Rfam assigns this 116-nucleotide sequence from Flaviflexus ciconiae to the family "SAM (S-adenosyl methionine) riboswitch aptamer". Gene Ontology terms of the family: S-adenosylmethionine metabolic process and regulation of gene expression. NCBI's taxonomy places the organism under Bacteria, Bacillati, Actinomycetes, Actinomycetaceae, Flaviflexus. Clan: SAM clan. For this family Rfam cites "The aptamer core of SAM-IV riboswitches mimics the ligand-binding site of SAM-I riboswitches" (Weinberg et al., RNA, 2008). About the family: SAM-IV is a mRNA element that regulates gene expression via direct sensing of S-adenosylmethionine (SAM or AdoMet). SAM-IV riboswitches share conserved nucleotide positions with the previously described SAM-I riboswitches sequence analysis and molecular recognition experiments suggest that SAM-I and SAM-IV riboswitches share similar ligand binding sites, but have different scaffolds. The match comes from Rfam's covariance-model search (55 bits).
RNA sequence: GAUCAAGAAGCUCGACGUUAAGCCUCUCAGCUUGUCGACUGGCAACCGCGUAUCGCACACGGUGCUCCUGAGGGAAGAUCUGCCCCCGAGCAUAAGCACGGGUGGAACUAGCGAUU
Numbered sequence: 001g002a003u004c005a006a007g008a009a010g011c012u013c014g015a016c017g018u019u020a021a022g023c024c025u026c027u028c029a030g031c032u033u034g035u036c037g038a039c040u041g042g043c044a045a046c047c048g049c050g051u052a053u054c055g056c057a058c059a060c061g062g063u064g065c066u067c068c069u070g071a072g073g074g075a076a077g078a079u080c081u082g083c084c085c086c087c088g089a090g091c092a093u094a095a096g097c098a099c100g101g102g103u104g105g106a107a108c109u110a111g112c113g114a115u116u
Stems, first nucleotide, its partner, number of pairs: 001080004009040001012038005021032002041066003046062003050058002083105002085102004090097002